The record is a 113-nucleotide RNA from Rhizobium metallidurans, which matches "Alphaproteobacterial ar15" in Rfam.
Lineage of the source: Bacteria > Pseudomonadota > Alphaproteobacteria > Hyphomicrobiales > Rhizobium.
The match comes from Rfam's covariance-model search (115 bits).
Its family is annotated with protein binding in the Gene Ontology.
The family is grouped with related families in Rfam's "suhB sRNA clan".
Rfam classes the family as a small RNA.
The pairing is the family consensus, mapped onto this sequence.
RNA sequence: AGCUGAUGCAUACGGUGGCUUUUCCUCCCAGUUCCACCGCAUUGGCUGUUCCCCUCUGGAGGUUUAGACCUUCAUACCUAUAAAGGGCCCCGAAUUUUCGGUGGCCCUCUUUU
Numbered sequence: 001a002g003c004u005g006a007u008g009c010a011u012a013c014g015g016u017g018g019c020u021u022u023u024c025c026u027c028c029c030a031g032u033u034c035c036a037c038c039g040c041a042u043u044g045g046c047u048g049u050u051c052c053c054c055u056c057u058g059g060a061g062g063u064u065u066a067g068a069c070c071u072u073c074a075u076a077c078c079u080a081u082a083a084a085g086g087g088c089c090c091c092g093a094a095u096u097u098u099c100g101g102u103g104g105c106c107c108u109c110u111u112u113u
Base pairs, nucleotide, nucleotide: 001047002046003045004044005043007041008040009039015037016036017035018034057074058073059072060071061070062069063068084108085107086106087105088104089103090101091100092099093098